[Rfam]
RNA: Alphaproteobacteria transfer-messenger RNA
Organism: Acidiphilium cryptum
RNA sequence: GAUCUUUCACAGCCGGUGUCCUUCACCUAUAUAGAGCGCGUCGGGCAACCGACUAUGGCGAUAAACGAUGCGUGGAAUAAGCGUAGUGGACCCGGGGGCAGUACCCGGCGCCUCCACCAGUUUCCCCGCCGGUCCGGUUCGCAUUGCGCAAAUCGAACCGCCGGCGGUUUCAUGGGGGCGAAACAGGCUCGACACGCGUGGUAAAGACCCAUCUUUCGCUCGGCAUGGUUCCGCCGUCAUCGGGCCGUAUGACAAGUGCCAACGAUAACUUCGAGGCGCUCGCUGUCGCUGCAUAAGCGAUAAGCGCGGCACGGGGGGCGCCGGGCAACAGAAGCCCCCCACC
Numbered sequence: 001g002a003u004c005u006u007u008c009a010c011a012g013c014c015g016g017u018g019u020c021c022u023u024c025a026c027c028u029a030u031a032u033a034g035a036g037c038g039c040g041u042c043g044g045g046c047a048a049c050c051g052a053c054u055a056u057g058g059c060g061a062u063a064a065a066c067g068a069u070g071c072g073u074g075g076a077a078u079a080a081g082c083g084u085a086g087u088g089g090a091c092c093c094g095g096g097g098g099c100a101g102u103a104c105c106c107g108g109c110g111c112c113u114c115c116a117c118c119a120g121u122u123u124c125c126c127c128g129c130c131g132g133u134c135c136g137g138u139u140c141g142c143a144u145u146g147c148g149c150a151a152a153u154c155g156a157a158c159c160g161c162c163g164g165c166g167g168u169u170u171c172a173u174g175g176g177g178g179c180g181a182a183a184c185a186g187g188c189u190c191g192a193c194a195c196g197c198g199u200g201g202u203a204a205a206g207a208c209c210c211a212u213c214u215u216u217c218g219c220u221c222g223g224c225a226u227g228g229u230u231c232c233g234c235c236g237u238c239a240u241c242g243g244g245c246c247g248u249a250u251g252a253c254a255a256g257u258g259c260c261a262a263c264g265a266u267a268a269c270u271u272c273g274a275g276g277c278g279c280u281c282g283c284u285g286u287c288g289c290u291g292c293a294u295a296a297g298c299g300a301u302a303a304g305c306g307c308g309g310c311a312c313g314g315g316g317g318g319c320g321c322c323g324g325g326c327a328a329c330a331g332a333a334g335c336c337c338c339c340c341a342c343c
Stems, first nucleotide, its partner, number of pairs: 040053005057220005067213004072208002082198003086195003092108005109180007221236004226247003231243002307323004313340006